[Rfam]
RNA: MIR480 microRNA precursor family
Organism: Populus deltoides
RNA sequence: CUCCAUGUUUAGGAUAGAUCUUCAUCUAAUUGUCAAUUAUUCAAAAUCACUCAUUAUCGCAAGCCUAAUUACACCACGAGCUUCUUGUUCAAUGCUUCGACGAACUAAAAUUACUAAAAAAGGUUGAGAAUAUUAU
Numbered sequence: 001c002u003c004c005a006u007g008u009u010u011a012g013g014a015u016a017g018a019u020c021u022u023c024a025u026c027u028a029a030u031u032g033u034c035a036a037u038u039a040u041u042c043a044a045a046a047u048c049a050c051u052c053a054u055u056a057u058c059g060c061a062a063g064c065c066u067a068a069u070u071a072c073a074c075c076a077c078g079a080g081c082u083u084c085u086u087g088u089u090c091a092a093u094g095c096u097u098c099g100a101c102g103a104a105c106u107a108a109a110a111u112u113a114c115u116a117a118a119a120a121a122g123g124u125u126g127a128g129a130a131u132a133u134u135a136u
Stems, first nucleotide, its partner, number of pairs: 005133003008129002012125001015122001019118001025116001027113005